[Rfam]
RNA sequence: ACUCUAGUAUUGACCCCAAUCCAUGUGUGUUGAGGUGGAUUGAGGUGUAAAUUAGUUUAAGUCACACUCCAAUCCACCACAAUACAUAUGGAUUGACCUUAAUACUAGA
Dot-bracket structure: ...((((((((((...((((((((((((((((..((((((((..(((.................)))..))))))))..))))))))))))))))...)))))))))).